The record is a 102-nucleotide RNA from Paenibacillus agri, which matches "c-di-GMP-I riboswitch aptamer" in Rfam.
RNA sequence: AAUUUAUAAAGGCAAACCUGUACGAAAGUCAGGGACGCAAAGCCACGGGCCUUAUUCCCAGCAUCUUCGGAUGUUCUGGCGAAUGGUAGCCGGGCCGCUUCU
Numbered sequence: 001a002a003u004u005u006a007u008a009a010a011g012g013c014a015a016a017c018c019u020g021u022a023c024g025a026a027a028g029u030c031a032g033g034g035a036c037g038c039a040a041a042g043c044c045a046c047g048g049g050c051c052u053u054a055u056u057c058c059c060a061g062c063a064u065c066u067u068c069g070g071a072u073g074u075u076c077u078g079g080c081g082a083a084u085g086g087u088a089g090c091c092g093g094g095c096c097g098c099u100u101c102u
Stems, first nucleotide, its partner, number of pairs: 012038002017033004022029002042095003046092003049087003056081001058079004